[Rfam]
RNA sequence: AUUUUCAUAGGUGAUGAAGUUCGCUUUUAAAUAUCUCCUUUGAGAUUGAUGACCUCUACUAUAUC
Numbered sequence: 001a002u003u004u005u006c007a008u009a010g011g012u013g014a015u016g017a018a019g020u021u022c023g024c025u026u027u028u029a030a031a032u033a034u035c036u037c038c039u040u041u042g043a044g045a046u047u048g049a050u051g052a053c054c055u056c057u058a059c060u061a062u063a064u065c
Base pairs, nucleotide, nucleotide: 010025011024012023013022016056017055019053020052021051033046034045035044036043
Dot-bracket structure: .........((((..[[.[[[)))).......((((......))))....]]].]].........